[Rfam]
RNA: mir-999 microRNA precursor family
Organism: Clunio marinus
RNA sequence: GGCAUUUAUGGAGACACGGUCAUACAGAGAAUCAUUGGGAUUAUGAAUCAAAUGUUAACUGUAAGACUGUGUCUUUAUGUUUGUC
Numbered sequence: 001g002g003c004a005u006u007u008a009u010g011g012a013g014a015c016a017c018g019g020u021c022a023u024a025c026a027g028a029g030a031a032u033c034a035u036u037g038g039g040a041u042u043a044u045g046a047a048u049c050a051a052a053u054g055u056u057a058a059c060u061g062u063a064a065g066a067c068u069g070u071g072u073c074u075u076u077a078u079g080u081u082u083g084u085c
Stems, first nucleotide, its partner, number of pairs: 003083002007079005013073009023063005030056003034053003